[Rfam]
Nucleotides: 102
Stems, first nucleotide, its partner, number of pairs: 002097007010090002017080004022076001032064003036060002
Number, partner (000 for none) and nucleotide at each position: 001000a002097g003096c004095u005094g006093g007092u008091c009000u010090g011089a012000g013000u014000a015000c016000a017080g018079u019078g020077g021000u022076g023000u024000u025000u026000a027000c028000a029000c030000c031000u032064a033063a034062u035000u036060g037059a038000u039000c040000a041000c042000a043000g044000c045000c046000a047000g048000c049000u050000a051000c052000g053000g054000a055000u056000u057000u058000a059037u060036u061000u062034g063033u064032u065000c066000c067000u068000u069000c070000u071000c072000c073000a074000c075000u076022c077020c078019c079018a080017c081000a082000g083000c084000u085000u086000c087000g088000c089011u090010u091008g092007a093006c094005u095004a096003g097002c098000c099000u100000u101000a102000a